The family of this 139-nucleotide RNA from Phocaeicola plebeius is "Bacteroidete tryptophan peptide leader RNA".
By type it is a cis-regulatory leader.
The organism belongs to Phocaeicola plebeius, within Bacteria.
RNA sequence: AAAACAAGAAAAAUAACAUUAUGAAUCUUUCUACGGUAAAUACAUUCUUCUGGUGGCGCCGCUUACAACUCCAAAGGUCGUAAGGGAACUCAGUCGCAUGUAUAUACCUCAAUAGUAAUAAUAUCACAGAAGGGCUGUC
Numbered sequence: 001a002a003a004a005c006a007a008g009a010a011a012a013a014u015a016a017c018a019u020u021a022u023g024a025a026u027c028u029u030u031c032u033a034c035g036g037u038a039a040a041u042a043c044a045u046u047c048u049u050c051u052g053g054u055g056g057c058g059c060c061g062c063u064u065a066c067a068a069c070u071c072c073a074a075a076g077g078u079c080g081u082a083a084g085g086g087a088a089c090u091c092a093g094u095c096g097c098a099u100g101u102a103u104a105u106a107c108c109u110c111a112a113u114a115g116u117a118a119u120a121a122u123a124u125c126a127c128a129g130a131a132g133g134g135c136u137g138u139c
Stems, first nucleotide, its partner, number of pairs: 036107003040103006047096001050093003056089001059086002066080001068078003